[Rfam]
RNA sequence: UUAGUGGAGGCUUUAGCUAUUGAACUGUUUUGUCCCUCGCUGUCAAAGAACAAAUUGUUCUCUGCCAGAGAGUCACAAAACAGUUCAAUGGCUAAAAACUUUUUUUUAU
Numbered sequence: 001u002u003a004g005u006g007g008a009g010g011c012u013u014u015a016g017c018u019a020u021u022g023a024a025c026u027g028u029u030u031u032g033u034c035c036c037u038c039g040c041u042g043u044c045a046a047a048g049a050a051c052a053a054a055u056u057g058u059u060c061u062c063u064g065c066c067a068g069a070g071a072g073u074c075a076c077a078a079a080a081c082a083g084u085u086c087a088a089u090g091g092c093u094a095a096a097a098a099c100u101u102u103u104u105u106u107u108a109u
Stems, first nucleotide, its partner, number of pairs: 001108001003106002006103001012096017029069004034064001049059004
The family of this 109-nucleotide RNA from Plutella xylostella is "mir-8517 microRNA precursor family". The family's consensus secondary structure was predicted with RNAalifold. Gene Ontology terms of the family: miRNA-mediated post-transcriptional gene silencing and RISC complex. A search with the family's covariance model found it, with a score of 72 bits. The organism belongs to Plutella, within Eukaryota.